[Rfam]
RNA sequence: UGGGCAGUAUCGGAAGAACUGCACCUGAUUAAAACCAAUACCUAAAAAUUUUCUGCCUUGAUCCAAUGAUUUGGACGGGGACGGAGGG
Numbered sequence: 001u002g003g004g005c006a007g008u009a010u011c012g013g014a015a016g017a018a019c020u021g022c023a024c025c026u027g028a029u030u031a032a033a034a035c036c037a038a039u040a041c042c043u044a045a046a047a048a049u050u051u052u053c054u055g056c057c058u059u060g061a062u063c064c065a066a067u068g069a070u071u072u073g074g075a076c077g078g079g080g081a082c083g084g085a086g087g088g
Base pairs, nucleotide, nucleotide: 002025003024004022005021006020007019008018010017011016053084054083055082056080057079058078059077060076062075063074064073065072066071

Shown here is an 88-nucleotide sequence from Peribacillus psychrosaccharolyticus, a member of the family "pan motif". By type it is a cis-regulatory element.